[Rfam]
RNA sequence: CCAGAUGGCCGGAUGGUCGCCCCUUGCCACCUUUGAUGAUGGCGGGGGGAGGAAAGUCCGGGCUCCACGGAAAAACGGUGCCGGAUAACGUCCGGCGGGGGCGACCCCAGGGACAGUGCCACAGAAAGCAGACCGCUGCGGCCUUGGCAGCAGCAAGGGUGAAAGGGUGCGGCAAGAGCGCACCGCGCCCCUGGUAACAGGGGCGGCAUGGUAAACCCCACCGGGAGCAAGACCAAGUAGGGACGGCAGCCGCAACAGGCGGCAGGCACUUUUCCGGGCCGCCGUCCGGGUCGGUCGCACCAGGUGUCCGGUAACGGGCAUCGCAGAUGAAUGACCAUCCAGCGCACAAAUUGUGCGUGGACAGAACCCGGCUUACAGGCCAUCUGGCACU
Numbered sequence: 001c002c003a004g005a006u007g008g009c010c011g012g013a014u015g016g017u018c019g020c021c022c023c024u025u026g027c028c029a030c031c032u033u034u035g036a037u038g039a040u041g042g043c044g045g046g047g048g049g050a051g052g053a054a055a056g057u058c059c060g061g062g063c064u065c066c067a068c069g070g071a072a073a074a075a076c077g078g079u080g081c082c083g084g085a086u087a088a089c090g091u092c093c094g095g096c097g098g099g100g101g102c103g104a105c106c107c108c109a110g111g112g113a114c115a116g117u118g119c120c121a122c123a124g125a126a127a128g129c130a131g132a133c134c135g136c137u138g139c140g141g142c143c144u145u146g147g148c149a150g151c152a153g154c155a156a157g158g159g160u161g162a163a164a165g166g167g168u169g170c171g172g173c174a175a176g177a178g179c180g181c182a183c184c185g186c187g188c189c190c191c192u193g194g195u196a197a198c199a200g201g202g203g204c205g206g207c208a209u210g211g212u213a214a215a216c217c218c219c220a221c222c223g224g225g226a227g228c229a230a231g232a233c234c235a236a237g238u239a240g241g242g243a244c245g246g247c248a249g250c251c252g253c254a255a256c257a258g259g260c261g262g263c264a265g266g267c268a269c270u271u272u273u274c275c276g277g278g279c280c281g282c283c284g285u286c287c288g289g290g291u292c293g294g295u296c297g298c299a300c301c302a303g304g305u306g307u308c309c310g311g312u313a314a315c316g317g318g319c320a321u322c323g324c325a326g327a328u329g330a331a332u333g334a335c336c337a338u339c340c341a342g343c344g345c346a347c348a349a350a351u352u353g354u355g356c357g358u359g360g361a362c363a364g365a366a367c368c369c370g371g372c373u374u375a376c377a378g379g380c381c382a383u384c385u386g387g388c389a390c391u
Base pairs, nucleotide, nucleotide: 001387002386003385004384005383006382007381008380009379010378011376012339013338014337015336016335017334018333020049021048022047023046024045025044026043027042028041054374055373056372058371059370060369061368062367063227064226065225066224072273073272074271076223077222078221079220080219081095082094083093084092085091096110097108098107099106100105111218112217116216117215118212119211120210133158134157135154136153137152138151139150141148142147166184167183168182169181170180171179185207186205187204188203189202190201191200192199193198231296232295233294234293241287242286243285244284245283246282265280266279267278269276303322304321305320306319307318308317309316310315

Rfam assigns this 391-nucleotide RNA sequence from Haematospirillum jordaniae to the family "Bacterial RNase P class A". The source organism's lineage runs through Bacteria, Pseudomonadati, Pseudomonadota, Rhodospirillales and Haematospirillum. Pairs were carried over by alignment from the consensus structure, which is taken from published work.